[Rfam]
RNA sequence: UGGUAGAUGCACCCUGAUAACUCACUCCCCCGAAGGACUGCCAUCUUUCGGGGGUUUUUGUU
Number, nucleotide and partner (000 for none) at each position: 001u000002g013003g012004u011005a000006g000007a000008u000009g000010c000011a004012c003013c002014c000015u000016g000017a000018u000019a000020a000021c000022u000023c000024a000025c000026u000027c054028c053029c052030c051031c050032g049033a048034a047035g046036g045037a044038c000039u000040g000041c000042c000043a000044u037045c036046u035047u034048u033049c032050g031051g030052g029053g028054g027055u000056u000057u000058u000059u000060g000061u000062u000

Nitrogen stress-induced RNA 1: a 62-nucleotide RNA sequence from Calothrix sp. NIES-3974.
The family's RNA type in Rfam is small RNA.
The family has 17 seed sequences and 962 matches in Rfam 15.1.
On this family, see Ionescu et al., J Mol Biol 2010: "Heterocyst-specific transcription of NsiR1, a non-coding RNA encoded in a tandem array of direct repeats in cyanobacteria".
Lineage of the source: Bacteria > Cyanobacteriota > Nostocales > Calotrichaceae > Calothrix.